[Rfam]
RNA sequence: GGAGUGCAAUAGACUUACCUCCACGUGGUGCACUCUGGGAAACGUAUUUGCAUACGGCAAAAAAGUAUAU
Numbered sequence: 001g002g003a004g005u006g007c008a009a010u011a012g013a014c015u016u017a018c019c020u021c022c023a024c025g026u027g028g029u030g031c032a033c034u035c036u037g038g039g040a041a042a043c044g045u046a047u048u049u050g051c052a053u054a055c056g057g058c059a060a061a062a063a064a065g066u067a068u069a070u
Base pairs, nucleotide, nucleotide: 001036002035003034004033005032006031007030017029018028019027043056044055045054046053047052

A member of the RNA family "HDV ribozyme from F. prausnitzii" from Rodentolepis nana, 70 nucleotides long. The base pairs follow the family's consensus structure, which is taken from published work.